[Rfam]
RNA sequence: GCGUCAGCUUUAGCUCACUGGCUACUUCACAGCAUCAACUUCAUUGUAAGUUCGGACCUGUCUCACCGUGGGCGCUGCCUGGCGUUUUU
Numbered sequence: 001g002c003g004u005c006a007g008c009u010u011u012a013g014c015u016c017a018c019u020g021g022c023u024a025c026u027u028c029a030c031a032g033c034a035u036c037a038a039c040u041u042c043a044u045u046g047u048a049a050g051u052u053c054g055g056a057c058c059u060g061u062c063u064c065a066c067c068g069u070g071g072g073c074g075c076u077g078c079c080u081g082g083c084g085u086u087u088u089u
Base pairs, nucleotide, nucleotide: 002084003083004082005081006080007079013073014072015071016070019068020067021066026056027055028054
Notes:
Shown here is an 89-nucleotide sequence from Scyliorhinus torazame, a member of the family "Vault RNA". The family has 73 seed sequences and 2,873 matches in Rfam 15.1. The source organism's lineage runs through Eukaryota, Eumetazoa, Chondrichthyes, Elasmobranchii and Scyliorhinus. This family of RNAs are found as part of the enigmatic vault ribonucleoprotein complex. The complex consists of a major vault protein (MVP), two minor vault proteins (VPARP and TEP1), and several small untranslated RNA molecules. It has been suggested that the vault complex is involved in drug resistance.